[Rfam]
RNA: Bacterial RNase P class A
Organism: Orbus hercynius
RNA sequence: GAAAUCAACCAGACAAUCGCUGCUUUGUUGUUGUCCGCAAGGAGACAAACAGAGGAGAGGAAAGUCCGGGCUCCAUAGGGCAAAGUGCCAGGUAACGCCUGGGGGGCUUUUGCGAGAGCGAAAGUUCACGACAAGUGCAACAGAGAGUAUACCGCCGAUGGCUGCUUGCAGCACAGGUAAGGGUGAAAGGGUGCGGUAAGAGCGCACCGCGCAACUGGUAACAGUUGUGGCACGGUAAACUCCACUUGGAGCAAGGUCAAAUAGGGAUUCAUUGGCGCGGCCCGCGUUGAAUCCGGGUAGACUGCUUGAGCUAAUACGUGAGUAUUAGCCUAGAUGAAUGAUUGUCCUCGACAGAACCCGGCUUAUCGGUUGAUUUCUUUU
Numbered sequence: 001g002a003a004a005u006c007a008a009c010c011a012g013a014c015a016a017u018c019g020c021u022g023c024u025u026u027g028u029u030g031u032u033g034u035c036c037g038c039a040a041g042g043a044g045a046c047a048a049a050c051a052g053a054g055g056a057g058a059g060g061a062a063a064g065u066c067c068g069g070g071c072u073c074c075a076u077a078g079g080g081c082a083a084a085g086u087g088c089c090a091g092g093u094a095a096c097g098c099c100u101g102g103g104g105g106g107c108u109u110u111u112g113c114g115a116g117a118g119c120g121a122a123a124g125u126u127c128a129c130g131a132c133a134a135g136u137g138c139a140a141c142a143g144a145g146a147g148u149a150u151a152c153c154g155c156c157g158a159u160g161g162c163u164g165c166u167u168g169c170a171g172c173a174c175a176g177g178u179a180a181g182g183g184u185g186a187a188a189g190g191g192u193g194c195g196g197u198a199a200g201a202g203c204g205c206a207c208c209g210c211g212c213a214a215c216u217g218g219u220a221a222c223a224g225u226u227g228u229g230g231c232a233c234g235g236u237a238a239a240c241u242c243c244a245c246u247u248g249g250a251g252c253a254a255g256g257u258c259a260a261a262u263a264g265g266g267a268u269u270c271a272u273u274g275g276c277g278c279g280g281c282c283c284g285c286g287u288u289g290a291a292u293c294c295g296g297g298u299a300g301a302c303u304g305c306u307u308g309a310g311c312u313a314a315u316a317c318g319u320g321a322g323u324a325u326u327a328g329c330c331u332a333g334a335u336g337a338a339u340g341a342u343u344g345u346c347c348u349c350g351a352c353a354g355a356a357c358c359c360g361g362c363u364u365a366u367c368g369g370u371u372g373a374u375u376u377c378u379u380u381u
Base pairs, nucleotide, nucleotide: 001377002376003375004374005373006372007371008370009369010368011366012346013345014344015343016342017341018340020057021056023054024053025052026051027050028049062364063363064362066361067360068359069358070357071251072250073249074248078283079282080281081280083247084246085245086244087243088102089101090100091099092098103129104127105126106125107124108123109122110121111120112119113118130242131241135240136239137236138235152182153181154178155177156176159175160174161172162171163170164169190208191207192206193205194204195203209231210229211228212227213226214225215224216223217222255303256302257301258300265294266293267292268291269290270289274288275287276286277285278284310329311328312327313326314325315324316323317322